[Rfam]
RNA: Bacterial RNase P class A
Organism: Candidatus Thiothrix singaporensis
RNA sequence: CGAGCUGAUUGGGCAAUCGCUGUUCCAUGCCUCAAGUGUGGAAGGGAGGAAAGUCCGGGCUCCAUAGGGUAAGACGCCAGGUAACGCCUGGGCGGCGUGAGCCGACGGAAAGUGCCACAGAAAUGAUACCGCCACCCGGCUUGCCGGAGGUAAGGGUGAAAUGGUGCGGUAAGAGCGCACCGCGUCACUGGCAACAGUUGACGGCACGGCAAACCCCGUCUGGAGCAAAACCAAAUAGGGAUGCAAUGGCGUGACCCGCGCUGCAUCCGGGUAGGUUGCUAGAGGUGCAUGGUGACGUGUAUCCCAGAUGAAUGAUUGUCCACGACAGAACCCGGCUUAUAGAUCAGCUCAUUUC
Numbered sequence: 001c002g003a004g005c006u007g008a009u010u011g012g013g014c015a016a017u018c019g020c021u022g023u024u025c026c027a028u029g030c031c032u033c034a035a036g037u038g039u040g041g042a043a044g045g046g047a048g049g050a051a052a053g054u055c056c057g058g059g060c061u062c063c064a065u066a067g068g069g070u071a072a073g074a075c076g077c078c079a080g081g082u083a084a085c086g087c088c089u090g091g092g093c094g095g096c097g098u099g100a101g102c103c104g105a106c107g108g109a110a111a112g113u114g115c116c117a118c119a120g121a122a123a124u125g126a127u128a129c130c131g132c133c134a135c136c137c138g139g140c141u142u143g144c145c146g147g148a149g150g151u152a153a154g155g156g157u158g159a160a161a162u163g164g165u166g167c168g169g170u171a172a173g174a175g176c177g178c179a180c181c182g183c184g185u186c187a188c189u190g191g192c193a194a195c196a197g198u199u200g201a202c203g204g205c206a207c208g209g210c211a212a213a214c215c216c217c218g219u220c221u222g223g224a225g226c227a228a229a230a231c232c233a234a235a236u237a238g239g240g241a242u243g244c245a246a247u248g249g250c251g252u253g254a255c256c257c258g259c260g261c262u263g264c265a266u267c268c269g270g271g272u273a274g275g276u277u278g279c280u281a282g283a284g285g286u287g288c289a290u291g292g293u294g295a296c297g298u299g300u301a302u303c304c305c306a307g308a309u310g311a312a313u314g315a316u317u318g319u320c321c322a323c324g325a326c327a328g329a330a331c332c333c334g335g336c337u338u339a340u341a342g343a344u345c346a347g348c349u350c351a352u353u354u355c
Stems, first nucleotide, its partner, number of pairs: 002350009011340001012320007020046002023043006051338003055335005060225004067257004072221005077091005092106001093104004107216002112214002114210003129155002131151003135147002138145002163181006182205001183203005188197003229277004239268006248262005284303008